The record is a 119-nucleotide RNA, which matches "FMN riboswitch aptamer (RFN element)" in Rfam. Rfam describes the family as follows. The RFN element is a highly conserved domain that is found frequently in the 5'-untranslated regions of prokaryotic mRNAs that encode for flavin mononucleotide (FMN) biosynthesis and transport proteins. The family's consensus secondary structure is taken from published work.
[Rfam]
RNA sequence: AAUGAUUCAAGAGGAGAGGUGCAAUUCCUUACCGGUGGUAUAGUCCACAACUCCCCUAGGGACUGAUAUGGCGAAAUUCCAUAACCGACGGUGAUAGUCCGGAUGGUAUUCGAAUCAAG
Numbered sequence: 001a002a003u004g005a006u007u008c009a010a011g012a013g014g015a016g017a018g019g020u021g022c023a024a025u026u027c028c029u030u031a032c033c034g035g036u037g038g039u040a041u042a043g044u045c046c047a048c049a050a051c052u053c054c055c056c057u058a059g060g061g062a063c064u065g066a067u068a069u070g071g072c073g074a075a076a077u078u079c080c081a082u083a084a085c086c087g088a089c090g091g092u093g094a095u096a097g098u099c100c101g102g103a104u105g106g107u108a109u110u111c112g113a114a115u116c117a118a119g
Stems, first nucleotide, its partner, number of pairs: 003117006009110002017029003031098002033087002035048004043085002052062002067083005089101003
Dot-bracket structure: ..((((((((......(((.......))).[[((((((....[[))))...((.......))....(((((.......)))))]])).(((.....]]))).......)).))))))..
Its family is annotated with FMN binding in the Gene Ontology.